[Rfam]
RNA sequence: GUGUUCAAGAGGCAUGCAGUCUGUAUAAGCUGAUGAUAAGGUUCAGCGUUUCUAUCAAACACCAUAAAUGUUUGACUACAGGGGUAUUAUGAAGAUUU
Dot-bracket structure: ...................((((((...(((((.........)))))........((((((.......))))))..))))))................
Numbered sequence: 001g002u003g004u005u006c007a008a009g010a011g012g013c014a015u016g017c018a019g020u021c022u023g024u025a026u027a028a029g030c031u032g033a034u035g036a037u038a039a040g041g042u043u044c045a046g047c048g049u050u051u052c053u054a055u056c057a058a059a060c061a062c063c064a065u066a067a068a069u070g071u072u073u074g075a076c077u078a079c080a081g082g083g084g085u086a087u088u089a090u091g092a093a094g095a096u097u098u
Stems, first nucleotide, its partner, number of pairs: 020082006029047005056074006

Rfam assigns this 98-nucleotide sequence from a Pseudomonadota bacterium to the family "Purine riboswitch aptamer". It scores 55 bits against the family's covariance model. Rfam links the family to the GO term purine nucleobase biosynthetic process. Taxonomically the source falls in Pseudomonadota (Bacteria, Pseudomonadati).